RNA: Manganese Mn2+ riboswitch aptamer (yybP-ykoY)
RNA sequence: CACCACGUCAUCUGGGGAGUAGCCCGCCGUCCAUCCGGACGGUUUCCCGCAUCAACAUACUUGGCCGAGAGGCCGUGGUGCAGGAAGGACGGAUCACCGUCCCGGCGAGACCAAUGACAUUGCGCCUCCGCUUGCCGGGUGGAGUGGCGCGAUGUCGUUGUGUUGUUCGUCCGCCC
Numbered sequence: 001c002a003c004c005a006c007g008u009c010a011u012c013u014g015g016g017g018a019g020u021a022g023c024c025c026g027c028c029g030u031c032c033a034u035c036c037g038g039a040c041g042g043u044u045u046c047c048c049g050c051a052u053c054a055a056c057a058u059a060c061u062u063g064g065c066c067g068a069g070a071g072g073c074c075g076u077g078g079u080g081c082a083g084g085a086a087g088g089a090c091g092g093a094u095c096a097c098c099g100u101c102c103c104g105g106c107g108a109g110a111c112c113a114a115u116g117a118c119a120u121u122g123c124g125c126c127u128c129c130g131c132u133u134g135c136c137g138g139g140u141g142g143a144g145u146g147g148c149g150c151g152a153u154g155u156c157g158u159u160g161u162g163u164u165g166u167u168c169g170u171c172c173g174c175c176c
Stems, first nucleotide, its partner, number of pairs: 027042003045085003049081006062075005092176001